[Rfam]
RNA sequence: UGGUGGCGAUGAUGAUGUCUAUAUUGUUGCUUUCCUGAUAUACAGACAUGAGGGUGUGCAGUCACUACCUCAUUUGAGCCAUCU
Numbered sequence: 001u002g003g004u005g006g007c008g009a010u011g012a013u014g015a016u017g018u019c020u021a022u023a024u025u026g027u028u029g030c031u032u033u034c035c036u037g038a039u040a041u042a043c044a045g046a047c048a049u050g051a052g053g054g055u056g057u058g059c060a061g062u063c064a065c066u067a068c069c070u071c072a073u074u075u076g077a078g079c080c081a082u083c084u
Stems, first nucleotide, its partner, number of pairs: 002083006
This 84-nucleotide RNA sequence from Piaya cayana belongs to the Rfam family "Small nucleolar RNA SNORD11B". Lineage of the source: Eukaryota > Coelurosauria > Neognathae > Neoaves > Piaya. Its family is annotated with nucleolus and RNA processing in the Gene Ontology. Pairs were carried over by alignment from the consensus structure, which was predicted with WAR. The family's RNA type in Rfam is C/D-box small nucleolar RNA. For this family Rfam cites "snoSeeker: an advanced computational package for screening of guide and orphan snoRNA genes in the human genome" (Yang et al., Nucleic Acids Res, 2006).